[Rfam]
RNA sequence: GUGUCCUCUGGAGUUCCCUUUACCACUUCACUGGGGUGAUGUGGUCUGGUCCGCCAUGACCUACUGAAGUGUUUGAGGGAACUCUGGCUGCCAC
Number, nucleotide and partner (000 for none) at each position: 001g000002u000003g000004u000005c090006c000007u000008c087009u086010g000011g084012a083013g082014u081015u080016c079017c078018c077019u076020u075021u000022a074023c000024c071025a070026c069027u068028u067029c066030a065031c000032u063033g062034g061035g060036g000037u000038g000039a000040u000041g000042u000043g000044g000045u000046c000047u000048g000049g000050u000051c000052c000053g000054c000055c000056a000057u000058g000059a000060c035061c034062u033063a032064c000065u030066g029067a028068a027069g026070u025071g024072u000073u000074u022075g020076a019077g018078g017079g016080a015081a014082c013083u012084c011085u000086g009087g008088c000089u000090g005091c000092c000093a000094c000
About this RNA:
The family of this 94-nucleotide sequence from Hibiscus syriacus is "mir-395 microRNA precursor family". The organism belongs to Hibiscus, within Eukaryota. Pairs were carried over by alignment from the consensus structure, which was predicted with PFOLD. About the family: mir-395 was identified in both Arabidopsis thaliana and Oryza sativa computationally and was later experimentally verified. mir-395 is thought to target mRNAs coding for ATP sulphurylases. The mature sequence is excised from the 3' arm of the hairpin.